Notes: This 107-nucleotide sequence from Arminella tumorigenes belongs to the Rfam family "EcpR1". NCBI's taxonomy places the organism under Bacteria, Pseudomonadota, Hyphomicrobiales, Rhizobiaceae, Arminella. The literature on the family includes a 2012 paper in RNA Biol by Wilms et al., "Deep sequencing uncovers numerous small RNAs on all four replicons of the plant pathogen Agrobacterium tumefaciens". Rfam describes the family as follows. Perviously named SmelC291, SmrC10, or Sra33. According to its overproduction phenotype it was renamed Elongated Cell Phenotype RNA1. Induced by stress,EcpR1 negatively regulates cell cycle master regulatory genes dnaA and gcrA at post-transcriptional level by base pairing between its strongly conserved GC-rich loop and the target mRNAs. It's regulation is hfq-independent but requires RNase E to regulate dnaA. Pairs were carried over by alignment from the consensus structure, which was predicted with WAR.
RNA sequence: AUACCCCAUGAUGCUCAGGUCCGCCGCAUCACCUGGUUCGUGGGGUCGGUCGGUCGGAUGCAUGCCUUGCGGUUCCUCGUACCGCUUUGCAUCCGUCCGACCCCUAG
Number, nucleotide and partner (000 for none) at each position: 001a000002u000003a046004c045005c044006c043007c042008a041009u040010g039011a000012u000013g000014c000015u036016c035017a034018g033019g032020u000021c000022c000023g000024c000025c000026g000027c000028a000029u000030c000031a000032c019033c018034u017035g016036g015037u000038u000039c010040g009041u008042g007043g006044g005045g004046u003047c000048g102049g101050u100051c099052g098053g097054u000055c095056g094057g093058a092059u000060g000061c000062a000063u000064g000065c000066c000067u000068u000069g000070c000071g000072g000073u000074u000075c000076c000077u000078c000079g000080u000081a000082c000083c000084g000085c000086u000087u000088u000089g000090c000091a000092u058093c057094c056095g055096u000097c053098c052099g051100a050101c049102c048103c000104c000105u000106a000107g000